[Rfam]
RNA sequence: UACAGAAAAAGGCACAAUCGGCGAAAGCCGAUGUCGCAAAGCCAAGGGUCUAAACGGCGAGGGGAUUUGCCGCAGGACAGCCGGCUACCGAA
Numbered sequence: 001u002a003c004a005g006a007a008a009a010a011g012g013c014a015c016a017a018u019c020g021g022c023g024a025a026a027g028c029c030g031a032u033g034u035c036g037c038a039a040a041g042c043c044a045a046g047g048g049u050c051u052a053a054a055c056g057g058c059g060a061g062g063g064g065a066u067u068u069g070c071c072g073c074a075g076g077a078c079a080g081c082c083g084g085c086u087a088c089c090g091a092a
Base pairs, nucleotide, nucleotide: 012037013036017032018031019030020029021028022027040086041085042084043083046082047081048078049077050076055072056071057070058069059068060067061066
The family of this 92-nucleotide sequence from Firmicutes bacterium CAG:102 is "c-di-GMP-I riboswitch aptamer". The organism belongs to Bacillota, within Bacteria. A search with the family's covariance model found it, with a score of 74 bits.